[Rfam]
RNA: Z6 small nucleolar RNA
RNA sequence: UGCUGGUGGCAGCCCCAGUGCUGACAUCUGCUUUGGCACAGGGCUCCCUGGAGCCAGGGGAGACGCUGCCACUGAAGCUCAAGUG
Numbered sequence: 001u002g003c004u005g006g007u008g009g010c011a012g013c014c015c016c017a018g019u020g021c022u023g024a025c026a027u028c029u030g031c032u033u034u035g036g037c038a039c040a041g042g043g044c045u046c047c048c049u050g051g052a053g054c055c056a057g058g059g060g061a062g063a064c065g066c067u068g069c070c071a072c073u074g075a076a077g078c079u080c081a082a083g084u085g
Stems, first nucleotide, its partner, number of pairs: 001085004